[Rfam]
RNA sequence: ACUUGUCGCGGGUGGCGGCUGAGGGCACUCGCGACGCGCAAACAGAACAGUGUGUCACGGGAACAUCGUGGCAUUUCAGGGCGUU
Numbered sequence: 001a002c003u004u005g006u007c008g009c010g011g012g013u014g015g016c017g018g019c020u021g022a023g024g025g026c027a028c029u030c031g032c033g034a035c036g037c038g039c040a041a042a043c044a045g046a047a048c049a050g051u052g053u054g055u056c057a058c059g060g061g062a063a064c065a066u067c068g069u070g071g072c073a074u075u076u077c078a079g080g081g082c083g084u085u
Stems, first nucleotide, its partner, number of pairs: 004036011016024001052074008
RNA: nrdJ RNA
Organism: Streptomyces sp. Ag109_O5-10